[Rfam]
RNA sequence: GUCAACAACCCAGGUCUAAAGACACUGGGCUUCUAGCCUAGAGCUUAAACCAGAGUUGACCAGACUAAGGAUUAAGUUCCUACGUUACUGGCAAGAGUUAAAGACCUACCAGUGGAUGCGAAGCUAGUUCACUGCUCUAGAACUUGGGAGUUAAACAGGUUUAUUGGGUUAAGCCAGUGCUUCUGAGAUAGUCACCGACCAGCAACAUUGUCGAAGCUAACAUCAC
Numbered sequence: 001g002u003c004a005a006c007a008a009c010c011c012a013g014g015u016c017u018a019a020a021g022a023c024a025c026u027g028g029g030c031u032u033c034u035a036g037c038c039u040a041g042a043g044c045u046u047a048a049a050c051c052a053g054a055g056u057u058g059a060c061c062a063g064a065c066u067a068a069g070g071a072u073u074a075a076g077u078u079c080c081u082a083c084g085u086u087a088c089u090g091g092c093a094a095g096a097g098u099u100a101a102a103g104a105c106c107u108a109c110c111a112g113u114g115g116a117u118g119c120g121a122a123g124c125u126a127g128u129u130c131a132c133u134g135c136u137c138u139a140g141a142a143c144u145u146g147g148g149a150g151u152u153a154a155a156c157a158g159g160u161u162u163a164u165u166g167g168g169u170u171a172a173g174c175c176a177g178u179g180c181u182u183c184u185g186a187g188a189u190a191g192u193c194a195c196c197g198a199c200c201a202g203c204a205a206c207a208u209u210g211u212c213g214a215a216g217c218u219a220a221c222a223u224c225a226c
Stems, first nucleotide, its partner, number of pairs: 001060006010029002012026002015022002033041003063212003067208001068081004084206003088202002097199003106140002110134008122218004143187009155178002158175006
A member of the RNA family "HNH endonuclease-associated RNA and ORF (HEARO) RNA" from Plectonema radiosum, 226 nucleotides long.
Rfam classes the family as a non-coding RNA gene.
The literature on the family includes a 2009 paper in Nature by Weinberg et al., "Exceptional structured noncoding RNAs revealed by bacterial metagenome analysis".